Shown here is a 131-nucleotide RNA from Nannospalax galili, a member of the family "Small nucleolar RNA SNORA24". Rfam links the family to the GO terms nucleolus and RNA processing. The match comes from Rfam's covariance-model search (121 bits). By type it is an H/ACA-box small nucleolar RNA. The family has 5 seed sequences and 852 matches in Rfam 15.1. Rfam describes the family as follows. ACA24 is a member of the H/ACA class of snoRNA that guide the sites of modification of uridines to pseudouridines. The source organism's lineage runs through Eukaryota, Opisthokonta, Metazoa, Rodentia and Nannospalax.
RNA sequence: CUCAAUGUGUCUUUGAGACCCAUCUGCUGUGACAGUCUUCCUUCCUAGUCAUGGAAGAGCAUAUUCUUGUUUAUUGGCAACACUGUCACCAUUUCAUUGGUAUCAGAUUCUGACUGACACAAGUAACAUUC
Number, nucleotide and partner (000 for none) at each position: 001c000002u055003c054004a000005a052006u051007g050008u000009g000010u000011c000012u000013u000014u000015g041016a000017g039018a038019c000020c035021c000022a000023u032024c031025u000026g000027c000028u000029g000030u000031g024032a023033c000034a000035g020036u000037c000038u018039u017040c000041c015042u000043u000044c000045c000046u000047a000048g000049u000050c007051a006052u005053g000054g003055a002056a000057g000058a000059g000060c000061a000062u000063a000064u000065u000066c000067u000068u128069g127070u126071u125072u000073a000074u122075u121076g120077g118078c000079a000080a115081c000082a000083c106084u105085g104086u000087c000088a101089c100090c099091a098092u000093u000094u000095c000096a000097u000098u091099g090100g089101u088102a000103u000104c085105a084106g083107a000108u000109u000110c000111u000112g000113a000114c000115u080116g000117a000118c077119a000120c076121a075122a074123g000124u000125a071126a070127c069128a068129u000130u000131c000